[Rfam]
A member of the RNA family "MIR159 microRNA precursor family" from Malus domestica, 198 nucleotides long. Rfam 15.1 lists 3,649 matches to the family in 242 species. Pairs were carried over by alignment from the consensus structure, which was predicted with WAR. The literature on the family includes a 2004 paper in Mol Cell by Jones-Rhoades and Bartel, "Computational identification of plant microRNAs and their targets, including a stress-induced miRNA".

RNA sequence: UGUAUAUGAAAGGAGCUCUUCUUCAGUCCAGUCCGGGGCAGUUUAAGGGCUGACACUCAGCUGCUGACUCGUUGGUUCAAGAACUCAUCGUACAAAUGCUAAAAGAAGUGGUGUGUUUCUGAUCCAACGAAGCAGGAGCUGAGAGGUUGGUUAUUGCAGUCGCGUCUUGGACUGAAGGGAGCUCCUUACCUAAUUAUU
Numbered sequence: 001u002g003u004a005u006a007u008g009a010a011a012g013g014a015g016c017u018c019u020u021c022u023u024c025a026g027u028c029c030a031g032u033c034c035g036g037g038g039c040a041g042u043u044u045a046a047g048g049g050c051u052g053a054c055a056c057u058c059a060g061c062u063g064c065u066g067a068c069u070c071g072u073u074g075g076u077u078c079a080a081g082a083a084c085u086c087a088u089c090g091u092a093c094a095a096a097u098g099c100u101a102a103a104a105g106a107a108g109u110g111g112u113g114u115g116u117u118u119c120u121g122a123u124c125c126a127a128c129g130a131a132g133c134a135g136g137a138g139c140u141g142a143g144a145g146g147u148u149g150g151u152u153a154u155u156g157c158a159g160u161c162g163c164g165u166c167u168u169g170g171a172c173u174g175a176a177g178g179g180a181g182c183u184c185c186u187u188a189c190c191u192a193a194u195u196a197u198u
Base pairs, nucleotide, nucleotide: 013184014183015182016181017180018179020178021177024174025173026172027171028170029169030168037161061138062137064135065134066133070129071128072127073126078121